Small nucleolar RNA psi28S-3316: a 134-nucleotide sequence from Drosophila navojoa. It is annotated as an H/ACA-box small nucleolar RNA. Rfam describes the family as follows. psi28S-3316 is a member of the H/ACA class of snoRNA. This family is responsible for guiding the modification of uridine 3316 in Drosophila 28S rRNA to pseudouridine. Rfam 15.1 lists 85 matches to the family in 19 species.
RNA sequence: GGCACCUAAAAGCGUUUUCUUGAUCGCUUUUUAAACGCGCCUGAAAAUCGUAGCUGUGUGCCAGAGCAAUCGCUGCGGCUGAAAGGGAAUUGAUGUCAAUUAGUGCAACAAUUCUAAUUAAGCCACGCACAAGU
Numbered sequence: 001g002g003c004a005c006c007u008a009a010a011a012g013c014g015u016u017u018u019c020u021u022g023a024u025c026g027c028u029u030u031u032u033a034a035a036c037g038c039g040c041c042u043g044a045a046a047a048u049c050g051u052a053g054c055u056g057u058g059u060g061c062c063a064g065a066g067c068a069a070u071c072g073c074u075g076c077g078g079c080u081g082a083a084a085g086g087g088a089a090u091u092g093a094u095g096u097c098a099a100u101u102a103g104u105g106c107a108a109c110a111a112u113u114c115u116a117a118u119u120a121a122g123c124c125a126c127g128c129a130c131a132a133g134u
Stems, first nucleotide, its partner, number of pairs: 001062005006056001012051003015047005022038001074127002077124003083119002087115001088113004094107003